[Rfam]
Purine riboswitch aptamer: a 102-nucleotide sequence from Clostridium baratii.

Nucleotides: 102
Stems, first nucleotide, its partner, number of pairs: 018088001020086006031047005058078007
Number, partner (000 for none) and nucleotide at each position: 001000c002000a003000a004000u005000a006000u007000a008000u009000c010000a011000u012000a013000a014000a015000a016000a017000c018088u019000g020086c021085u022084c023083g024082u025081a026000u027000a028000u029000a030000a031047u032046c033045g034044g035043a036000a037000a038000u039000a040000g041000g042000g043035u044034c045033c046032g047031g048000a049000a050000g051000u052000u053000u054000c055000u056000a057000c058078c059077u060076g061075c062074u063073a064072g065000c066000c067000g068000u069000a070000a071000a072064u073063u074062a075061g076060c077059a078058g079000a080000c081025u082024a083023c084022g085021a086020g087000g088018g089000a090000a091000c092000g093000a094000a095000a096000u097000u098000u099000u100000a101000a102000u
From the family's description: Riboswitches are metabolite binding domains within certain messenger RNAs that serve as precision sensors for their corresponding targets.